[Rfam]
Bacteroidales-2 RNA: a 392-nucleotide RNA sequence. The sequence is in the family's curated seed alignment.
RNA sequence: GCACGUCCCCCGUCUUUUCCAACGGGGCAGCUAACAUUAGGGCGGUUGGCGGCUGGUGAUUAUGGGCAUGACAUUGGCAAUGCUCUUUUCUCAAGCUCCGUGCGGAUUGUUUUUACCGCAUAGCGAUUUUUAUCUCCGGCUGCGCAAGGGCAGACUUAUGGCAUUAUUUUAUCGCCUCCCUUUUUCCAUACGACUCUCGCCCUCCCAAAAUCACGGGCUUUGCGUAUGCGGACAAAAUACACGUAUUUCGACCGUUCCGACUUGCUACAUUGGUUUGUAGUCCUGCGCGGUGUGGUUGUUUGACACCCUCUUUAAUCGCUCCAAAGCGAACAGGCGAAUUUUUGUUUGUCCGAGCUAAAAAAUAGGUUUCCCACAAAAAAUGCUCUUUGUUU
Numbered sequence: 001g002c003a004c005g006u007c008c009c010c011c012g013u014c015u016u017u018u019c020c021a022a023c024g025g026g027g028c029a030g031c032u033a034a035c036a037u038u039a040g041g042g043c044g045g046u047u048g049g050c051g052g053c054u055g056g057u058g059a060u061u062a063u064g065g066g067c068a069u070g071a072c073a074u075u076g077g078c079a080a081u082g083c084u085c086u087u088u089u090c091u092c093a094a095g096c097u098c099c100g101u102g103c104g105g106a107u108u109g110u111u112u113u114u115a116c117c118g119c120a121u122a123g124c125g126a127u128u129u130u131u132a133u134c135u136c137c138g139g140c141u142g143c144g145c146a147a148g149g150g151c152a153g154a155c156u157u158a159u160g161g162c163a164u165u166a167u168u169u170u171a172u173c174g175c176c177u178c179c180c181u182u183u184u185u186c187c188a189u190a191c192g193a194c195u196c197u198c199g200c201c202c203u204c205c206c207a208a209a210a211u212c213a214c215g216g217g218c219u220u221u222g223c224g225u226a227u228g229c230g231g232a233c234a235a236a237a238u239a240c241a242c243g244u245a246u247u248u249c250g251a252c253c254g255u256u257c258c259g260a261c262u263u264g265c266u267a268c269a270u271u272g273g274u275u276u277g278u279a280g281u282c283c284u285g286c287g288c289g290g291u292g293u294g295g296u297u298g299u300u301u302g303a304c305a306c307c308c309u310c311u312u313u314a315a316u317c318g319c320u321c322c323a324a325a326g327c328g329a330a331c332a333g334g335c336g337a338a339u340u341u342u343u344g345u346u347u348g349u350c351c352g353a354g355c356u357a358a359a360a361a362a363u364a365g366g367u368u369u370c371c372c373a374c375a376a377a378a379a380a381u382g383c384u385c386u387u388u389g390u391u392u
Base pairs, nucleotide, nucleotide: 008027009026010025011024012023013022052096053095054093055092056091102119103118104117105116123175124174125173126172140153141152142151143150187228188227189226190225191224192223199218200217201216202215205273206272207271208270229254230253231252233250235248236247237246238245239244264281265280266279267278268277269276282334283333284332285331289307290306291305292304293303316329317328318327319326320325352385353384354383355382365372366371